[Rfam]
RNA: Clostridiales-2 RNA
Organism: Emergencia timonensis
RNA sequence: GAAAAGUGGUUUAUGCAGAGGGGAAUCCCCUGGCCGCCCUAAGGAGGGUGCUCAGCCUGCAAAGCAGGCGCCGAAGGGAAC
Numbered sequence: 001g002a003a004a005a006g007u008g009g010u011u012u013a014u015g016c017a018g019a020g021g022g023g024a025a026u027c028c029c030c031u032g033g034c035c036g037c038c039c040u041a042a043g044g045a046g047g048g049u050g051c052u053c054a055g056c057c058u059g060c061a062a063a064g065c066a067g068g069c070g071c072c073g074a075a076g077g078g079a080a081c
Base pairs, nucleotide, nucleotide: 015034016033018031020029021028022027055069056068057067058066059065